[Rfam]
The record is a 129-nucleotide RNA from Oryctes borbonicus, which matches "Small nucleolar RNA psi18S-1377" in Rfam. The family's consensus secondary structure was predicted with RNAalifold.
RNA sequence: UUGUCUCUGUGUUACUUGAAUAUUGCAUCUUGUGAAUAUUUGAGCGUCAAACGAGACACAUAAUAAAUUCCUAUUUCCACAUGAGUUGAUUCGAUAAUGAUCUACUCUUACUAAAGAUAGGAUACAUGU
Numbered sequence: 001u002u003g004u005c006u007c008u009g010u011g012u013u014a015c016u017u018g019a020a021u022a023u024u025g026c027a028u029c030u031u032g033u034g035a036a037u038a039u040u041u042g043a044g045c046g047u048c049a050a051a052c053g054a055g056a057c058a059c060a061u062a063a064u065a066a067a068u069u070c071c072u073a074u075u076u077c078c079a080c081a082u083g084a085g086u087u088g089a090u091u092c093g094a095u096a097a098u099g100a101u102c103u104a105c106u107c108u109u110a111c112u113a114a115a116g117a118u119a120g121g122a123u124a125c126a127u128g129u
Base pairs, nucleotide, nucleotide: 002058003057004056005055006054007053010049011048016043017042018041019040020039021038022037081109083107084103085102087100